[Rfam]
Notes:
Shown here is a 71-nucleotide sequence, a member of the family "RAGATH-16 RNA".
RNA sequence: CCCGAUAAAUUCGGGCGUCGCCGGUGCAUGAGAGUUAGGCUCAUGGUACGAGAUAGUGAAAAUCCCCGGAG
Dot-bracket structure: (((((.....))))).....((((..((((((.......))))))....................))))..
Numbered sequence: 001c002c003c004g005a006u007a008a009a010u011u012c013g014g015g016c017g018u019c020g021c022c023g024g025u026g027c028a029u030g031a032g033a034g035u036u037a038g039g040c041u042c043a044u045g046g047u048a049c050g051a052g053a054u055a056g057u058g059a060a061a062a063u064c065c066c067c068g069g070a071g
Stems, first nucleotide, its partner, number of pairs: 001015005021069004027045006
By type it is a small RNA.